[Rfam]
RNA sequence: UUCUAGUCCUGGCCCCUGACUCCCAGCCGUUCCUCGCCCUGGCGCACUUCCCCGGUGCCAGGUCGGAAUGGAUGGGGAUCAGAGAUCAGGAACGGUCCGCA
Numbered sequence: 001u002u003c004u005a006g007u008c009c010u011g012g013c014c015c016c017u018g019a020c021u022c023c024c025a026g027c028c029g030u031u032c033c034u035c036g037c038c039c040u041g042g043c044g045c046a047c048u049u050c051c052c053c054g055g056u057g058c059c060a061g062g063u064c065g066g067a068a069u070g071g072a073u074g075g076g077g078a079u080c081a082g083a084g085a086u087c088a089g090g091a092a093c094g095g096u097c098c099g100c101a
Stems, first nucleotide, its partner, number of pairs: 010088003014084001016082001018080002021077005027071006035065002038062008
mraW RNA: a 101-nucleotide sequence from Compostimonas suwonensis. Pairs were carried over by alignment from the consensus structure, which is taken from published work.